Rfam assigns this 170-nucleotide RNA from Microcebus murinus to the family "FGF-1 internal ribosome entry site (IRES)".
Rfam links the family to the GO term ribosome binding.
Nucleotides: 170
Base pairs, nucleotide, nucleotide: 003169004168005167008165010164011163012162016050017049018048019047025041026040027039028038029037052151053150057078059075060074061073063072064071065070083145084144085140086139087138088137094128095127096126097125098124104119
Number, partner (000 for none) and nucleotide at each position: 001000c002000a003169c004168u005167c006000c007000a008165g009000c010164g011163g012162g013000g014000c015000a016050a017049g018048g019047g020000c021000a022000u023000c024000g025041c026040c027039u028038c029037c030000u031000u032000u033000c034000c035000u036000c037029g038028g039027a040026g041025g042000a043000c044000a045000c046000u047019c048018c049017u050016u051000c052151u053150g054000g055000u056000g057078g058000u059075g060074a061073a062000u063072g064071g065070g066000a067000a068000c069000u070065c071064c072063c073061u074060u075059c076000c077000u078057c079000c080000u081000g082000c083145g084144g085140c086139a087138g088137c089000c090000u091000g092000c093000c094128u095127g096126c097125g098124g099000c100000g101000g102000c103000c104119c105000g106000g107000g108000u109000u110000g111000u112000a113000c114000c115000g116000u117000g118000u119104g120000g121000a122000c123000a124098c125097u126096g127095c128094a129000a130000a131000g132000c133000c134000a135000a136000a137088g138087c139086u140085g141000u142000c143000a144084c145083c146000u147000c148000c149000c150053c151052g152000a153000g154000a155000g156000a157000a158000a159000g160000c161000g162012c163011c164010c165008c166000a167005g168004a169003g170000c